[Rfam]
RNA sequence: AUGCCAGUAAAUUGUGUCUGCUUAACUUGAAAAUGUUCUGCAGAAAUCAUUAGGAUGCUGCUGGCAAUAACAAAGCCAUGGUACGAGCCUUAAGACUUGCUAGUCCUUGAGGUCCCUGAAAAUGGCUACAUAU
Numbered sequence: 001a002u003g004c005c006a007g008u009a010a011a012u013u014g015u016g017u018c019u020g021c022u023u024a025a026c027u028u029g030a031a032a033a034u035g036u037u038c039u040g041c042a043g044a045a046a047u048c049a050u051u052a053g054g055a056u057g058c059u060g061c062u063g064g065c066a067a068u069a070a071c072a073a074a075g076c077c078a079u080g081g082u083a084c085g086a087g088c089c090u091u092a093a094g095a096c097u098u099g100c101u102a103g104u105c106c107u108u109g110a111g112g113u114c115c116c117u118g119a120a121a122a123u124g125g126c127u128a129c130a131u132a133u
Base pairs, nucleotide, nucleotide: 003065004064005063006062007061017044018043019042020041021040075126076125077124078123087113088112089111090110091109092108093107094105095104096103
RNA: Small nucleolar RNA SNORA33
Organism: Pelusios castaneus